RNA sequence: GGAUGUAAAACCCAUCUCUCUACCUCCAUGUGGUCCCCCCUGGAUAAACUGAUGUCUAAAUUACAUCAGUUUAACUAAAAGAGAG
Dot-bracket structure: ..............(((((.((((.......)))..........((((((((((.........))))))))))....).))))).

Shown here is an 85-nucleotide RNA sequence from Strigamia maritima, a member of the family "drz-agam-1 ribozyme". The literature on the family includes a 2009 paper in Science by Webb et al., "Widespread occurrence of self-cleaving ribozymes". The family has 7 seed sequences and 10,507 matches in Rfam 15.1. Pairs were carried over by alignment from the consensus structure, which is taken from published work. Taxonomically the source falls in Strigamia (Eukaryota, Panarthropoda, Arthropoda, Epimorpha). Gene Ontology term of the family: catalytic activity.